[Rfam]
The family of this 69-nucleotide RNA from Krasilnikovia cinnamomea is "ASpks TB sRNA". The match comes from Rfam's covariance-model search (67 bits). The family's consensus secondary structure is taken from published work. NCBI's taxonomy places the organism under Bacteria, Bacillati, Actinomycetes, Micromonosporaceae, Krasilnikovia.
RNA sequence: CUUGAUCGACCCGAGCAGCAGCGGGCUCUCCCGCUCCUGCCCGUACGUGGCCAGCAGCGCCUGCGCCUC
Numbered sequence: 001c002u003u004g005a006u007c008g009a010c011c012c013g014a015g016c017a018g019c020a021g022c023g024g025g026c027u028c029u030c031c032c033g034c035u036c037c038u039g040c041c042c043g044u045a046c047g048u049g050g051c052c053a054g055c056a057g058c059g060c061c062u063g064c065g066c067c068u069c
Base pairs, nucleotide, nucleotide: 016024028065030063032059033058037054038053039052041050042049043048